RNA sequence: CCAACGAUACUCCUGUUCAGUCACAGUCCGAGCGUGAAAGUGUUUCCAGCACUAUGCCGUCGCAGGCAAUGAGAGCAGCCGCAUGAGAACCAUGCGGGGGUGAAAUUCCCGUGG
Numbered sequence: 001c002c003a004a005c006g007a008u009a010c011u012c013c014u015g016u017u018c019a020g021u022c023a024c025a026g027u028c029c030g031a032g033c034g035u036g037a038a039a040g041u042g043u044u045u046c047c048a049g050c051a052c053u054a055u056g057c058c059g060u061c062g063c064a065g066g067c068a069a070u071g072a073g074a075g076c077a078g079c080c081g082c083a084u085g086a087g088a089a090c091c092a093u094g095c096g097g098g099g100g101u102g103a104a105a106u107u108c109c110c111g112u113g114g
Stems, first nucleotide, its partner, number of pairs: 012111001013078006079097003083093003098110003
pemK RNA: a 114-nucleotide RNA from Oscillibacter sp. 1-3. It is annotated as a cis-regulatory element.